[Rfam]
RNA sequence: UGAGAUCUUUCGAUGGCCGCGGUAAACAUAAUUACUGAGGAACUUCCGGGCUCCAUAGAGCACGAUGGCGGAUAACGUCCGCCCAGGGUGACCUGAGAGAAAGCGCAACAGAGAGUAGACCGCCUGUUUCUAUAGAACAGGUAAGGGUGAAAGGGUGGUGUAAGAGACCACCGGACUGCUGGUAACAGCCGUCGCACGGCAAGCCUCAUCGGGAGCAAGGCCAAGCAGAAGGCAAAUAAGGUUGCUCGCCUAGUCUUCGGGUAGGCCGCUAGAGCCUGUCGGCAACGGCAGGUCGAGAUGGAUGGCCAUCCACUUCUUAGCGAGGUGACAGAACCCGGGGUAUGAAAGGUCUCACACU
Numbered sequence: 001u002g003a004g005a006u007c008u009u010u011c012g013a014u015g016g017c018c019g020c021g022g023u024a025a026a027c028a029u030a031a032u033u034a035c036u037g038a039g040g041a042a043c044u045u046c047c048g049g050g051c052u053c054c055a056u057a058g059a060g061c062a063c064g065a066u067g068g069c070g071g072a073u074a075a076c077g078u079c080c081g082c083c084c085a086g087g088g089u090g091a092c093c094u095g096a097g098a099g100a101a102a103g104c105g106c107a108a109c110a111g112a113g114a115g116u117a118g119a120c121c122g123c124c125u126g127u128u129u130c131u132a133u134a135g136a137a138c139a140g141g142u143a144a145g146g147g148u149g150a151a152a153g154g155g156u157g158g159u160g161u162a163a164g165a166g167a168c169c170a171c172c173g174g175a176c177u178g179c180u181g182g183u184a185a186c187a188g189c190c191g192u193c194g195c196a197c198g199g200c201a202a203g204c205c206u207c208a209u210c211g212g213g214a215g216c217a218a219g220g221c222c223a224a225g226c227a228g229a230a231g232g233c234a235a236a237u238a239a240g241g242u243u244g245c246u247c248g249c250c251u252a253g254u255c256u257u258c259g260g261g262u263a264g265g266c267c268g269c270u271a272g273a274g275c276c277u278g279u280c281g282g283c284a285a286c287g288g289c290a291g292g293u294c295g296a297g298a299u300g301g302a303u304g305g306c307c308a309u310c311c312a313c314u315u316c317u318u319a320g321c322g323a324g325g326u327g328a329c330a331g332a333a334c335c336c337g338g339g340g341u342a343u344g345a346a347a348g349g350u351c352u353c354a355c356a357c358u
Base pairs, nucleotide, nucleotide: 001354002353003352004351005350006349007348008347009346010345012310013309014308015307016306017305018304020037021036022035023034024033025032042341043340044339046338047337048336049335050334051215052214053213054212058247059246060245061244063211064210065209066208067207068082069081070080071079072078083097084095085094086093087092098206099205103204104203105200106199120146121145122142123141124140125139126138127137128136129135154172155171156170157169158168159167173195174193175192176191178189179188180187181186219267220266221265222264228258229257230256231255232254233253239251240250241249242248274293275292276291277290278289279288280287281286

The record is a 358-nucleotide RNA from Bombiscardovia coagulans, which matches "Bacterial RNase P class A" in Rfam. The match comes from Rfam's covariance-model search (308 bits).